[Rfam]
RNA sequence: CGGCCAGGGGAAUUCCUGGCAGAGUGAUUUUUAAACCUAAUGACUGAAUCACAUUGCCAGGGAUUUCCAAUGGCUC
Numbered sequence: 001c002g003g004c005c006a007g008g009g010g011a012a013u014u015c016c017u018g019g020c021a022g023a024g025u026g027a028u029u030u031u032u033a034a035a036c037c038u039a040a041u042g043a044c045u046g047a048a049u050c051a052c053a054u055u056g057c058c059a060g061g062g063a064u065u066u067c068c069a070a071u072g073g074c075u076c
Stems, first nucleotide, its partner, number of pairs: 002075001004073003010068001012064011024052007
The record is a 76-nucleotide sequence from Danio rerio, which matches "mir-23 microRNA precursor family" in Rfam.
On this family, see Chen et al., Genes Dev 2005: "The developmental miRNA profiles of zebrafish as determined by small RNA cloning".
Rfam's curators put it in the seed alignment.
The source organism's lineage runs through Eukaryota, Clupeocephala, Cypriniphysae, Danioninae and Danio.